RNA sequence: UGCUGUGAUGGUGUAAUUUGCGACUGACUCUGUGACCAGUGACAGAAUGCCUACUGUCGUAUGCUGCACAGAUGGUUGACGAACAAAGAGUCUGAGCG
Numbered sequence: 001u002g003c004u005g006u007g008a009u010g011g012u013g014u015a016a017u018u019u020g021c022g023a024c025u026g027a028c029u030c031u032g033u034g035a036c037c038a039g040u041g042a043c044a045g046a047a048u049g050c051c052u053a054c055u056g057u058c059g060u061a062u063g064c065u066g067c068a069c070a071g072a073u074g075g076u077u078g079a080c081g082a083a084c085a086a087a088g089a090g091u092c093u094g095a096g097c098g
Stems, first nucleotide, its partner, number of pairs: 001098003021081002024078001030071005039064002041058005
The record is a 98-nucleotide sequence from Cynoglossus semilaevis, which matches "Small nucleolar RNA SNORD16" in Rfam. A search with the family's covariance model found it, with a score of 68 bits. For this family Rfam cites "RNomics: an experimental approach that identifies 201 candidates for novel, small, non-messenger RNAs in mouse" (Huttenhofer et al., EMBO J, 2001). The organism belongs to Cynoglossus, within Eukaryota. It is annotated as a C/D-box small nucleolar RNA. Clan: SNORD16 clan.